[Rfam]
RNA sequence: UAGUAGAUGCACCCUGAUUCAAUUUUUACCUCAGUCCGUUAGGGACUGGGGUUUUUUAUU
Numbered sequence: 001u002a003g004u005a006g007a008u009g010c011a012c013c014c015u016g017a018u019u020c021a022a023u024u025u026u027u028a029c030c031u032c033a034g035u036c037c038g039u040u041a042g043g044g045a046c047u048g049g050g051g052u053u054u055u056u057u058a059u060u
Stems, first nucleotide, its partner, number of pairs: 003012002028052010
RNA: Nitrogen stress-induced RNA 1